A member of the RNA family "Lysine riboswitch aptamer" from Sporosarcina sp. HYO08, 183 nucleotides long. Lineage of the source: Bacteria > Bacillati > Caryophanales > Caryophanaceae > Sporosarcina. The match comes from Rfam's covariance-model search (114 bits).

[Rfam]
RNA sequence: AGGUGAGGUAGAGGCGCGAUGUUUAACAGUCCUAAGGGGAGUUUGAGAAGCUAUGAUUCUUAGGAGAAGGAAAUGUCGCCGAAGUGAGUAAUAUUUCUCGGUAUUACUUGCUGGGUCUGCAGCUAAUAACUGCAGGACUGUCUCAAUAAACGUCCCGGUUUAUUGAGGUGUACUAUCUCAAAU
Numbered sequence: 001a002g003g004u005g006a007g008g009u010a011g012a013g014g015c016g017c018g019a020u021g022u023u024u025a026a027c028a029g030u031c032c033u034a035a036g037g038g039g040a041g042u043u044u045g046a047g048a049a050g051c052u053a054u055g056a057u058u059c060u061u062a063g064g065a066g067a068a069g070g071a072a073a074u075g076u077c078g079c080c081g082a083a084g085u086g087a088g089u090a091a092u093a094u095u096u097c098u099c100g101g102u103a104u105u106a107c108u109u110g111c112u113g114g115g116u117c118u119g120c121a122g123c124u125a126a127u128a129a130c131u132g133c134a135g136g137a138c139u140g141u142c143u144c145a146a147u148a149a150a151c152g153u154c155c156c157g158g159u160u161u162a163u164u165g166a167g168g169u170g171u172a173c174u175a176u177c178u179c180a181a182a183u
Stems, first nucleotide, its partner, number of pairs: 006178006016079009031064008083112012113139002116136007141168010